The record is an 81-nucleotide sequence from Rattus norvegicus, which matches "mir-105 microRNA precursor family" in Rfam. Gene Ontology terms of the family: molecular_function, miRNA-mediated post-transcriptional gene silencing and biological_process. For this family Rfam cites "MicroRNA transcriptome in the newborn mouse ovaries determined by massive parallel sequencing" (Ahn et al., Mol Hum Reprod, 2010). The organism belongs to Rattus, within Eukaryota.
RNA sequence: UGUGUAUUGUAGUCAAGUGCUCAGAUGUCUGUGGUGGCUGCUUAUGUAUCACGGAUGUUUGAGCAUGUGCUAUGGUAUCUA
Number, nucleotide and partner (000 for none) at each position: 001u000002g000003u000004g078005u077006a076007u075008u074009g073010u072011a071012g070013u000014c069015a068016a000017g066018u065019g064020c063021u062022c061023a060024g059025a058026u057027g000028u054029c053030u000031g000032u000033g000034g052035u051036g050037g049038c000039u048040g047041c046042u000043u000044a000045u000046g041047u040048a039049u037050c036051a035052c034053g029054g028055a000056u000057g026058u025059u024060u023061g022062a021063g020064c019065a018066u017067g000068u015069g014070c012071u011072a010073u009074g008075g007076u006077a005078u004079c000080u000081a000